Rfam assigns this 103-nucleotide RNA sequence from Burkholderia multivorans to the family "Glycine riboswitch aptamer". The family has 44 seed sequences and 9,425 matches in Rfam 15.1. Taxonomically the source falls in Burkholderia multivorans (Bacteria, Burkholderiales, Burkholderiaceae, Burkholderia cepacia complex).
RNA sequence: CCGCACGCGUCGGGAGAGCGCGUGACCGCAGCGUUUCAGCACCGGUCGCGCCGCCGAAGGGGCACACCCGCAAACUCUCAGGCAAAAGGACCGACCGCGUCGG
Numbered sequence: 001c002c003g004c005a006c007g008c009g010u011c012g013g014g015a016g017a018g019c020g021c022g023u024g025a026c027c028g029c030a031g032c033g034u035u036u037c038a039g040c041a042c043c044g045g046u047c048g049c050g051c052c053g054c055c056g057a058a059g060g061g062g063c064a065c066a067c068c069c070g071c072a073a074a075c076u077c078u079c080a081g082g083c084a085a086a087a088g089g090a091c092c093g094a095c096c097g098c099g100u101c102g103g
Stems, first nucleotide, its partner, number of pairs: 009095005020051009053083003056079002060077003